This 554-nucleotide part of an RNA from Candidatus Epulonipiscium viviparus belongs to the Rfam family "Bacterial large subunit ribosomal RNA". The source organism's lineage runs through Bacteria, Bacillati, Bacillota, Lachnospiraceae and Candidatus Epulonipiscium. The family's consensus secondary structure is taken from published work.
[Rfam]
RNA sequence: UACUAAGAGCGUAGAGUGGAUGCCUUGGCACCGAGAGCCGAUGAAGGACGUGGUAAGCUGCGAAAAGCUUGGGUAAGUUGCAAACAAACGCUAUAACCCGAGAUGUCCGAAUGGGGAAACCUAGCUGAGUAAACCUCAGUUGUUAUAUGGUAAAUUCAUAGCCAUAUAAAGGGAACGUUGGGAACUGAAACAUCUAAGUACCAACAGGAGGAGAAAGAAAAAUCGAUUUCCUAAGUAGUGGCGAGCGAACGGGAAACAGGCCAAACUCAAUUACUUGUAAUUGAGGGUUCGGACUGCGACAUGGAACAAAGUCUAUAGUUUAAUUGUUUUGGGAAAGCAAGCCAAAGAAGGUGAAAGCCCUGUUGACGAAAUAGACCUACACCUAGCAGGAUCCAGAGUACCACGAGACACGAGAAACCUUGUGGGAACACGUGGGGACCACCCCAUAAGCCUAAAUACUCCUCGGUGACCGAUAGCGAAUAGUACUGUGAAGGAAAGGUGAAAAGAACCCCGGGAGGGGAGUGAAAAAGAACCUGAAACUCUAUGUUUACAAG
Numbered sequence: 001u002a003c004u005a006a007g008a009g010c011g012u013a014g015a016g017u018g019g020a021u022g023c024c025u026u027g028g029c030a031c032c033g034a035g036a037g038c039c040g041a042u043g044a045a046g047g048a049c050g051u052g053g054u055a056a057g058c059u060g061c062g063a064a065a066a067g068c069u070u071g072g073g074u075a076a077g078u079u080g081c082a083a084a085c086a087a088a089c090g091c092u093a094u095a096a097c098c099c100g101a102g103a104u105g106u107c108c109g110a111a112u113g114g115g116g117a118a119a120c121c122u123a124g125c126u127g128a129g130u131a132a133a134c135c136u137c138a139g140u141u142g143u144u145a146u147a148u149g150g151u152a153a154a155u156u157c158a159u160a161g162c163c164a165u166a167u168a169a170a171g172g173g174a175a176c177g178u179u180g181g182g183a184a185c186u187g188a189a190a191c192a193u194c195u196a197a198g199u200a201c202c203a204a205c206a207g208g209a210g211g212a213g214a215a216a217g218a219a220a221a222a223u224c225g226a227u228u229u230c231c232u233a234a235g236u237a238g239u240g241g242c243g244a245g246c247g248a249a250c251g252g253g254a255a256a257c258a259g260g261c262c263a264a265a266c267u268c269a270a271u272u273a274c275u276u277g278u279a280a281u282u283g284a285g286g287g288u289u290c291g292g293a294c295u296g297c298g299a300c301a302u303g304g305a306a307c308a309a310a311g312u313c314u315a316u317a318g319u320u321u322a323a324u325u326g327u328u329u330u331g332g333g334a335a336a337g338c339a340a341g342c343c344a345a346a347g348a349a350g351g352u353g354a355a356a357g358c359c360c361u362g363u364u365g366a367c368g369a370a371a372u373a374g375a376c377c378u379a380c381a382c383c384u385a386g387c388a389g390g391a392u393c394c395a396g397a398g399u400a401c402c403a404c405g406a407g408a409c410a411c412g413a414g415a416a417a418c419c420u421u422g423u424g425g426g427a428a429c430a431c432g433u434g435g436g437g438a439c440c441a442c443c444c445c446a447u448a449a450g451c452c453u454a455a456a457u458a459c460u461c462c463u464c465g466g467u468g469a470c471c472g473a474u475a476g477c478g479a480a481u482a483g484u485a486c487u488g489u490g491a492a493g494g495a496a497a498g499g500u501g502a503a504a505a506g507a508a509c510c511c512c513g514g515g516a517g518g519g520g521a522g523u524g525a526a527a528a529a530g531a532a533c534c535u536g537a538a539a540c541u542c543u544a545u546g547u548u549u550a551c552a553a554g
Stems, first nucleotide, its partner, number of pairs: 007549010022534001023499002027471002029468007036460002038172002046108003049062003068102007077089003113122003123141007143169009176207001177205005187194002217224002227456001228255005238246002258453004266285007291394002294389004304383001309378001311376006318367003324340004329336001343347001349361003401425007432447005486493002509520004